[Rfam]
RNA sequence: GCGCCGUGUACUCCCAGAUGGCGUCCGGAUCGGUCAGGGUCUGGUCGCCGAAGUAGGCGCCGUCGGCGAGGACGCCGAGGACGGCGUCGGUCCCGUACGGACCCGGGCCGACCUUCUCGAUCCUGCCGUGCGCGAGCAGGAAGACCGUGUCGACACGGCUGCCGAAGGAGGCCAGCACGUCGCCUGCGGCCACCUCGCGCUGCCGGCAGCGCCGGGCCAGCUCGCCGAGCACGUCCUCGUCCGUGAAACUCCGGAGCGCGGGCAGCUCGCCCAGCUCGGCGGGGAUGACCUGGACCUGGUCGCCCGUCUUUACAAAGGUGACCCGGCCGUCCCCCACCGCGUACGUGAGCCGGCGGUUCACCCGGUACGUGCCGCCCUGCACGUUCACCCACGGCAGCGCCUGGAGGAGCCAGCGCGAGCUGAUCUCCUGCAUCUGAGGCGCCGACUUGGUGGUGGUGGCCAGAUUCCGCGCCGCGGAGGUGCCGAGGCUCUGCUGCGGCUGCGGCUCCU
Numbered sequence: 001g002c003g004c005c006g007u008g009u010a011c012u013c014c015c016a017g018a019u020g021g022c023g024u025c026c027g028g029a030u031c032g033g034u035c036a037g038g039g040u041c042u043g044g045u046c047g048c049c050g051a052a053g054u055a056g057g058c059g060c061c062g063u064c065g066g067c068g069a070g071g072a073c074g075c076c077g078a079g080g081a082c083g084g085c086g087u088c089g090g091u092c093c094c095g096u097a098c099g100g101a102c103c104c105g106g107g108c109c110g111a112c113c114u115u116c117u118c119g120a121u122c123c124u125g126c127c128g129u130g131c132g133c134g135a136g137c138a139g140g141a142a143g144a145c146c147g148u149g150u151c152g153a154c155a156c157g158g159c160u161g162c163c164g165a166a167g168g169a170g171g172c173c174a175g176c177a178c179g180u181c182g183c184c185u186g187c188g189g190c191c192a193c194c195u196c197g198c199g200c201u202g203c204c205g206g207c208a209g210c211g212c213c214g215g216g217c218c219a220g221c222u223c224g225c226c227g228a229g230c231a232c233g234u235c236c237u238c239g240u241c242c243g244u245g246a247a248a249c250u251c252c253g254g255a256g257c258g259c260g261g262g263c264a265g266c267u268c269g270c271c272c273a274g275c276u277c278g279g280c281g282g283g284g285a286u287g288a289c290c291u292g293g294a295c296c297u298g299g300u301c302g303c304c305c306g307u308c309u310u311u312a313c314a315a316a317g318g319u320g321a322c323c324c325g326g327c328c329g330u331c332c333c334c335c336a337c338c339g340c341g342u343a344c345g346u347g348a349g350c351c352g353g354c355g356g357u358u359c360a361c362c363c364g365g366u367a368c369g370u371g372c373c374g375c376c377c378u379g380c381a382c383g384u385u386c387a388c389c390c391a392c393g394g395c396a397g398c399g400c401c402u403g404g405a406g407g408a409g410c411c412a413g414c415g416c417g418a419g420c421u422g423a424u425c426u427c428c429u430g431c432a433u434c435u436g437a438g439g440c441g442c443c444g445a446c447u448u449g450g451u452g453g454u455g456g457u458g459g460c461c462a463g464a465u466u467c468c469g470c471g472c473c474g475c476g477g478a479g480g481u482g483c484c485g486a487g488g489c490u491c492u493g494c495u496g497c498g499g500c501u502g503c504g505g506c507u508c509c510u
Stems, first nucleotide, its partner, number of pairs: 006388003010384002015379001017327001020324002024321002030315001034312001036310005044304001046302002049299001051297001053232002058227002061224002064110004074102001079098001081096004117220001119218001121216002125212002129208001131205002135201002140196001142195002149190001154188001156186001157184003160177002164173001233295004239289003244284001249281001251279003255276003258270003328341003352376005359371003390430002393427002396424001398422002402417002406414001436475001438473002441470002444467002447463005476509002480503002483499003486495002
Shown here is a 510-nucleotide sequence from Streptomyces sulfonofaciens, a member of the family "Saccharopolyspora sRNA 350". It scores 119 bits against the family's covariance model. It is annotated as an antisense RNA. The literature on the family includes a 2013 paper in PLoS One by Liu et al., "Prediction and characterization of small non-coding RNAs related to secondary metabolites in Saccharopolyspora erythraea".